[Rfam]
RNA sequence: GCCUAGGGUAGAGGUGCUUAGAUUAAGAGUACUUAGUAGUAGCUGGCAAGUGUUGAUAACUAAGGAAAGGAAUCGUAGCCGAAGAGAGUUAAUUGGCAAAUAAAUUCUCUGGAUUUGCACAAAAUAUGUGCAAGGCUGUCACUUGCUAAAAGUGUUGAGCUACAAGGUUU
Numbered sequence: 001g002c003c004u005a006g007g008g009u010a011g012a013g014g015u016g017c018u019u020a021g022a023u024u025a026a027g028a029g030u031a032c033u034u035a036g037u038a039g040u041a042g043c044u045g046g047c048a049a050g051u052g053u054u055g056a057u058a059a060c061u062a063a064g065g066a067a068a069g070g071a072a073u074c075g076u077a078g079c080c081g082a083a084g085a086g087a088g089u090u091a092a093u094u095g096g097c098a099a100a101u102a103a104a105u106u107c108u109c110u111g112g113a114u115u116u117g118c119a120c121a122a123a124a125u126a127u128g129u130g131c132a133a134g135g136c137u138g139u140c141a142c143u144u145g146c147u148a149a150a151a152g153u154g155u156u157g158a159g160c161u162a163c164a165a166g167g168u169u170u
Stems, first nucleotide, its partner, number of pairs: 008163004016079003021074004032064006039057001083110008092101003111137002114134008140154005

Rfam assigns this 170-nucleotide RNA sequence from Romboutsia lituseburensis to the family "Lysine riboswitch aptamer". On this family, see Sudarsan et al., Genes Dev 2003: "An mRNA structure in bacteria that controls gene expression by binding lysine". NCBI's taxonomy places the organism under Bacteria, Clostridia, Peptostreptococcaceae, Romboutsia, Romboutsia lituseburensis. A search with the family's covariance model found it, with a score of 98 bits. Its family is annotated with lysine biosynthetic process in the Gene Ontology.